[Rfam]
RNA sequence: GCCGAGCUUAGUAGCGAGAGCUUGUAACCUUCGCGGGGCAUUAAUGUGAUGGGACUGUGGGAUAACUCAACUAAGUCGGGUGCGAGUGGCCAACAAUUAGCCUGCCCAUUCCAAGCCAAGGGUUGAACCAUGUGACUUGGGCUAAGGCUCUGGGUCUCUUGGUUUCUAGAGUGGAGGAAACUGCGUGAGGCUGGUUUCACAGAGCAGCGACAACCUCCCGCCCCUGGCAGUGGAAGGAUUACGGGUCGAUGGCCUACCUGUGCCCAUUAAGACCCGUUGAGUUCAUCCUAAAUGAACCAUCACCUUU
Numbered sequence: 001g002c003c004g005a006g007c008u009u010a011g012u013a014g015c016g017a018g019a020g021c022u023u024g025u026a027a028c029c030u031u032c033g034c035g036g037g038g039c040a041u042u043a044a045u046g047u048g049a050u051g052g053g054a055c056u057g058u059g060g061g062a063u064a065a066c067u068c069a070a071c072u073a074a075g076u077c078g079g080g081u082g083c084g085a086g087u088g089g090c091c092a093a094c095a096a097u098u099a100g101c102c103u104g105c106c107c108a109u110u111c112c113a114a115g116c117c118a119a120g121g122g123u124u125g126a127a128c129c130a131u132g133u134g135a136c137u138u139g140g141g142c143u144a145a146g147g148c149u150c151u152g153g154g155u156c157u158c159u160u161g162g163u164u165u166c167u168a169g170a171g172u173g174g175a176g177g178a179a180a181c182u183g184c185g186u187g188a189g190g191c192u193g194g195u196u197u198c199a200c201a202g203a204g205c206a207g208c209g210a211c212a213a214c215c216u217c218c219c220g221c222c223c224c225u226g227g228c229a230g231u232g233g234a235a236g237g238a239u240u241a242c243g244g245g246u247c248g249a250u251g252g253c254c255u256a257c258c259u260g261u262g263c264c265c266a267u268u269a270a271g272a273c274c275c276g277u278u279g280a281g282u283u284c285a286u287c288c289u290a291a292a293u294g295a296a297c298c299a300u301c302a303c304c305u306u307u
Stems, first nucleotide, its partner, number of pairs: 001039003004023006028036002043306002046303007055294001058290002060287002064283002067280005075273003078265007087256003091251002097249002100246005106237002109235005115228004120223004125165006132158001134156006140149003166171001173218005184209003191202003
RNA: Plant signal recognition particle RNA